SAH (S-adenosyl-L-homocysteine) riboswitch aptamer: a 78-nucleotide RNA sequence from Allobrachymonas denitrificans. The literature on the family includes a 2008 paper in Mol Cell by Wang et al., "Riboswitches that sense S-adenosylhomocysteine and activate genes involved in coenzyme recycling". It scores 54 bits against the family's covariance model.
RNA sequence: AUUCCCAAGGAGCGUUGCACCGCCAUGCGCAAGGCAUGGCGUCAGGCUUGGGCACCAUUGCAACGACGCUCACCCCAC
Numbered sequence: 001a002u003u004c005c006c007a008a009g010g011a012g013c014g015u016u017g018c019a020c021c022g023c024c025a026u027g028c029g030c031a032a033g034g035c036a037u038g039g040c041g042u043c044a045g046g047c048u049u050g051g052g053c054a055c056c057a058u059u060g061c062a063a064c065g066a067c068g069c070u071c072a073c074c075c076c077a078c
Stems, first nucleotide, its partner, number of pairs: 002054001004052005021041008